[Rfam]
RNA sequence: UGGUGAUGAUGUACAAACUCACGAUGGUCUUCCUAGCUCUCUCUGGUGAAUGAGAGGCUGCUGAAAAUGCCAGUCUGGCAGUCACUGAACCAUAAAG
Numbered sequence: 001u002g003g004u005g006a007u008g009a010u011g012u013a014c015a016a017a018c019u020c021a022c023g024a025u026g027g028u029c030u031u032c033c034u035a036g037c038u039c040u041c042u043c044u045g046g047u048g049a050a051u052g053a054g055a056g057g058c059u060g061c062u063g064a065a066a067a068u069g070c071c072a073g074u075c076u077g078g079c080a081g082u083c084a085c086u087g088a089a090c091c092a093u094a095a096a097g
Stems, first nucleotide, its partner, number of pairs: 001092004
The record is a 97-nucleotide RNA sequence from Podarcis lilfordi, which matches "Small nucleolar RNA SNORD35" in Rfam. Gene Ontology terms of the family: RNA processing and nucleolus. Rfam 15.1 lists 1,842 matches to the family in 634 species. The base pairs follow the family's consensus structure, which was predicted with PFOLD. By type it is a C/D-box small nucleolar RNA. U35 is a C/D box snoRNA located in intron 6 of ribosomal protein L13A and intron 3 of ribosomal protein S11 in humans and at homologous positions in mouse and chicken ribosomal protein genes. On this family, see Nicoloso et al., J Mol Biol 1996: "Intron-encoded, antisense small nucleolar RNAs: the characterization of nine novel species points to their direct role as guides for the 2'-O-ribose methylation of rRNAs". The organism belongs to Podarcis, within Eukaryota. The family is grouped with related families in Rfam's "SNORD35 clan".